[Rfam]
RNA: Group II catalytic intron D1-D4-4
Organism: Nannocystis exedens
RNA sequence: CAGCGGGUGAGAGUCCCGUCCGGGUAGGCGCCGGAGCGCCUGGUCGCAGGCCCCAGGCGCGGCGAGAGAUCGCUGCGGCCCGAGCGGGGCGUCAAGAGCCUCUGCGGAGGGAGCAAGAACGCGGGCCGCAACAUCG
Numbered sequence: 001c002a003g004c005g006g007g008u009g010a011g012a013g014u015c016c017c018g019u020c021c022g023g024g025u026a027g028g029c030g031c032c033g034g035a036g037c038g039c040c041u042g043g044u045c046g047c048a049g050g051c052c053c054c055a056g057g058c059g060c061g062g063c064g065a066g067a068g069a070u071c072g073c074u075g076c077g078g079c080c081c082g083a084g085c086g087g088g089g090c091g092u093c094a095a096g097a098g099c100c101u102c103u104g105c106g107g108a109g110g111g112a113g114c115a116a117g118a119a120c121g122c123g124g125g126c127c128g129c130a131a132c133a134u135c136g
Stems, first nucleotide, its partner, number of pairs: 020043005050090005056080002058077003064071002099110004113129002